Shown here is a 105-nucleotide sequence from Jannaschia donghaensis, a member of the family "Guanidine-I riboswitch aptamer". For this family Rfam cites "Structural Basis for Ligand Binding to the Guanidine-I Riboswitch" (Reiss et al., Structure, 2017). Lineage of the source: Bacteria > Pseudomonadati > Pseudomonadota > Roseobacteraceae > Jannaschia. The match comes from Rfam's covariance-model search (77 bits).
RNA sequence: AGGCAGGAUGUCUAGGGUUCCGCCUCCGCCGAGGGUCAGGUCCGAGAGAUAUCGCCGUGCGGCGAAAGACCGGGCGGUACACGGCGGGGCAAAAUCCCGGGAGGC
Number, nucleotide and partner (000 for none) at each position: 001a000002g000003g000004c000005a000006g000007g053008a052009u051010g050011u049012c048013u000014a000015g043016g042017g000018u000019u000020c040021c039022g037023c034024c033025u032026c031027c000028g000029c000030c000031g026032a025033g024034g023035g000036u000037c022038a000039g021040g020041u000042c016043c015044g000045a000046g000047a000048g012049a011050u010051a009052u008053c007054g078055c077056c076057g075058u074059g000060c072061g071062g000063c000064g000065a000066a000067a000068g000069a000070c000071c061072g060073g000074g058075c057076g056077g055078u054079a000080c100081a000082c103083g000084g000085c000086g098087g097088g096089g000090c000091a000092a000093a000094a000095u000096c088097c087098c086099g000100g080101g000102a000103g082104g000105c000